[Rfam]
RNA sequence: ACACGUGAAAGGAGGUGGUCCACGACAUGACGUUCGACCGGACUCGUGAGGUGACCGCCCGCUGACAACGGGUGAGCCGGAUGUGCCGUCCGCUCGCCCCUCGGCGAGUACCAGGCGGUGACCGGAGCCCGCGGGAGUCGUGCCCUCGUCCAGCACGACCGCUCGAGGAUCGAGCAUCCCGCGGGCUCUUCCAU
Numbered sequence: 001a002c003a004c005g006u007g008a009a010a011g012g013a014g015g016u017g018g019u020c021c022a023c024g025a026c027a028u029g030a031c032g033u034u035c036g037a038c039c040g041g042a043c044u045c046g047u048g049a050g051g052u053g054a055c056c057g058c059c060c061g062c063u064g065a066c067a068a069c070g071g072g073u074g075a076g077c078c079g080g081a082u083g084u085g086c087c088g089u090c091c092g093c094u095c096g097c098c099c100c101u102c103g104g105c106g107a108g109u110a111c112c113a114g115g116c117g118g119u120g121a122c123c124g125g126a127g128c129c130c131g132c133g134g135g136a137g138u139c140g141u142g143c144c145c146u147c148g149u150c151c152a153g154c155a156c157g158a159c160c161g162c163u164c165g166a167g168g169a170u171c172g173a174g175c176a177u178c179c180c181g182c183g184g185g186c187u188c189u190u191c192c193a194u
Base pairs, nucleotide, nucleotide: 014059015058016057017056018055019054060106061105062104063103064102065101070099071098072097073096075094076093077092125188126187127186128185129184130183131182132181133180134179135178136177138158139157140156141155142154143153